[Rfam]
RNA sequence: CUGACCGCGCCUCCCCGCAUCCCCUAGGGCAUUGGUGUGAAGCUGGAGACCCACUGCCCCAGGUGCUGCUGGGGGUCUCGGUC
Numbered sequence: 001c002u003g004a005c006c007g008c009g010c011c012u013c014c015c016c017g018c019a020u021c022c023c024c025u026a027g028g029g030c031a032u033u034g035g036u037g038u039g040a041a042g043c044u045g046g047a048g049a050c051c052c053a054c055u056g057c058c059c060c061a062g063g064u065g066c067u068g069c070u071g072g073g074g075g076u077c078u079c080g081g082u083c
Base pairs, nucleotide, nucleotide: 009076010075011074013073014072015071017069018068019067021065023063024062025061027059028058029057030056031055033053034052035051037050038049
The record is an 83-nucleotide sequence from Crocuta crocuta, which matches "mir-324 microRNA precursor family" in Rfam. It scores 99 bits against the family's covariance model. The base pairs follow the family's consensus structure, which was predicted with RNAalifold. Taxonomically the source falls in Crocuta (Eukaryota, Vertebrata, Theria, Carnivora).